[Rfam]
RNA: ZMP/ZTP riboswitch aptamer (pfl RNA motif)
RNA sequence: CAGGUCUCCCGUAACUGACGGAAGCAGAUAACUGCAUGGGAACGGGGAAUAAGACUUUGCCGACCGUCUGGGCUCGUGAG
Numbered sequence: 001c002a003g004g005u006c007u008c009c010c011g012u013a014a015c016u017g018a019c020g021g022a023a024g025c026a027g028a029u030a031a032c033u034g035c036a037u038g039g040g041a042a043c044g045g046g047g048a049a050u051a052a053g054a055c056u057u058u059g060c061c062g063a064c065c066g067u068c069u070g071g072g073c074u075c076g077u078g079a080g
Stems, first nucleotide, its partner, number of pairs: 004050002007047006015039002017068005024035004059073003